[Rfam]
Rfam assigns this 69-nucleotide RNA from Desulfatibacillum alkenivorans to the family "int-alpA RNA".
RNA sequence: GUGGGGGCUAAGGUAGCUCCUGAAAAGGCGGUAUCUGGCCCGCCCUGCCCCCUACUCACAAAAGCCAGG
Numbered sequence: 001g002u003g004g005g006g007g008c009u010a011a012g013g014u015a016g017c018u019c020c021u022g023a024a025a026a027g028g029c030g031g032u033a034u035c036u037g038g039c040c041c042g043c044c045c046u047g048c049c050c051c052c053u054a055c056u057c058a059c060a061a062a063a064g065c066c067a068g069g
Stems, first nucleotide, its partner, number of pairs: 003052006011021003027044005035069002038066001
Rfam's curators write: Acidobacteria (1 example), Planctomycetes (1 example), Proteobacteria. It is annotated as a small RNA. Taxonomically the source falls in Desulfatibacillum alkenivorans (Bacteria, Desulfobacteria, Desulfobacterales, Desulfatibacillaceae). A search with the family's covariance model found it, with a score of 37 bits.